[Rfam]
The record is a 69-nucleotide sequence from Mycobacterium kiyosense, which matches "ASpks TB sRNA" in Rfam. It scores 61 bits against the family's covariance model. The family's consensus secondary structure is taken from published work. A reference for the family is Arnvig and Young (2009), "Identification of small RNAs in Mycobacterium tuberculosis", Mol Microbiol.

RNA sequence: CUUGAUCGACCCCAGCCACAGCGGCUCGGCGCGGUCGCGCCCAUAGGUCGCCAGGAUCGCCUGCGCCUC
Numbered sequence: 001c002u003u004g005a006u007c008g009a010c011c012c013c014a015g016c017c018a019c020a021g022c023g024g025c026u027c028g029g030c031g032c033g034g035u036c037g038c039g040c041c042c043a044u045a046g047g048u049c050g051c052c053a054g055g056a057u058c059g060c061c062u063g064c065g066c067c068u069c
Stems, first nucleotide, its partner, number of pairs: 014026004029064002032059002039052001041050001043048001